[Rfam]
RNA: Lysine riboswitch aptamer
RNA sequence: GCCCGUUGUAGAGGCGCGAUUAAAAUGAGUAAACACAUUUAGGGUGAUUCCUUUGAGAUGUGGUGAAAGGUUUUUUCGCCGAAGUGGGUGUGUAUAUCAAAACACAUUUGCUGGGGUUGUUUCCAAAUAGGAACAACACUGCCAUAGUCAGUUUAAUUUUAUAACUAUGGAGCGCUACUGUAAGG
Dot-bracket structure: .....(.((((....((((..(((.......(.((((((.................)))))).)......)))..))))...(((((((((((........)))))))))))((.((((((((......)))))))).)).(((((((...............)))))))....)))).).....
Numbered sequence: 001g002c003c004c005g006u007u008g009u010a011g012a013g014g015c016g017c018g019a020u021u022a023a024a025a026u027g028a029g030u031a032a033a034c035a036c037a038u039u040u041a042g043g044g045u046g047a048u049u050c051c052u053u054u055g056a057g058a059u060g061u062g063g064u065g066a067a068a069g070g071u072u073u074u075u076u077c078g079c080c081g082a083a084g085u086g087g088g089u090g091u092g093u094a095u096a097u098c099a100a101a102a103c104a105c106a107u108u109u110g111c112u113g114g115g116g117u118u119g120u121u122u123c124c125a126a127a128u129a130g131g132a133a134c135a136a137c138a139c140u141g142c143c144a145u146a147g148u149c150a151g152u153u154u155a156a157u158u159u160u161a162u163a164a165c166u167a168u169g170g171a172g173c174g175c176u177a178c179u180g181u182a183a184g185g
Stems, first nucleotide, its partner, number of pairs: 006180001008178004016079004022073003032064001034062006083112011113140002116137008142170007